Rfam assigns this 126-nucleotide RNA from Treponema pedis to the family "TD-1 RNA". Pairs were carried over by alignment from the consensus structure, which is taken from published work. For this family Rfam cites "Identification of 22 candidate structured RNAs in bacteria using the CMfinder comparative genomics pipeline" (Weinberg et al., Nucleic Acids Res, 2007).

[Rfam]
RNA sequence: GUUUAUCUUCCGUGUUUGUCUUUAGGCAAACACGGGAAUAGUGUAUCCGCUUUUUACUUCCGCUUAUAAAAGCGAUUAAAAAUUUUUUUUGGGAUUUGAUAAUCCUUGUAAAAAAAUUUUGUGGGA
Numbered sequence: 001g002u003u004u005a006u007c008u009u010c011c012g013u014g015u016u017u018g019u020c021u022u023u024a025g026g027c028a029a030a031c032a033c034g035g036g037a038a039u040a041g042u043g044u045a046u047c048c049g050c051u052u053u054u055u056a057c058u059u060c061c062g063c064u065u066a067u068a069a070a071a072g073c074g075a076u077u078a079a080a081a082a083u084u085u086u087u088u089u090u091g092g093g094a095u096u097u098g099a100u101a102a103u104c105c106u107u108g109u110a111a112a113a114a115a116a117u118u119u120u121g122u123g124g125g126a
Stems, first nucleotide, its partner, number of pairs: 011034002014031007048074007079120009088110001091106006